Source information
The record is a 160-nucleotide RNA sequence from Vibrio aerogenes, which matches "Gammaprotebacteria rimP leader" in Rfam. It scores 62 bits against the family's covariance model. It is annotated as a cis-regulatory leader. On this family, see Naville and Gautheret, Genome Biol 2010: "Premature terminator analysis sheds light on a hidden world of bacterial transcriptional attenuation". Its family is annotated with regulation of gene expression in the Gene Ontology. The base pairs follow the family's consensus structure, which is taken from published work.

[Rfam]
RNA sequence: GGGUUCAUAUCCAACAUUAGGGUCCAGCAUAUUAGAAACCCCGGCUUUCGGGGUUUUUUAAUAUCUGAAUUUUUGAUUUAAUGUAUGUUUUAUCAUGUGUACUUAAAUCAAAAAGUUAGAUGAUGUUUGGAAUUGAAAUUGGGCUGAAAGCCCUUUUUUU
Numbered sequence: 001g002g003g004u005u006c007a008u009a010u011c012c013a014a015c016a017u018u019a020g021g022g023u024c025c026a027g028c029a030u031a032u033u034a035g036a037a038a039c040c041c042c043g044g045c046u047u048u049c050g051g052g053g054u055u056u057u058u059u060a061a062u063a064u065c066u067g068a069a070u071u072u073u074u075g076a077u078u079u080a081a082u083g084u085a086u087g088u089u090u091u092a093u094c095a096u097g098u099g100u101a102c103u104u105a106a107a108u109c110a111a112a113a114a115g116u117u118a119g120a121u122g123a124u125g126u127u128u129g130g131a132a133u134u135g136a137a138a139u140u141g142g143g144c145u146g147a148a149a150g151c152c153c154u155u156u157u158u159u160u
Stems, first nucleotide, its partner, number of pairs: 035057009141153004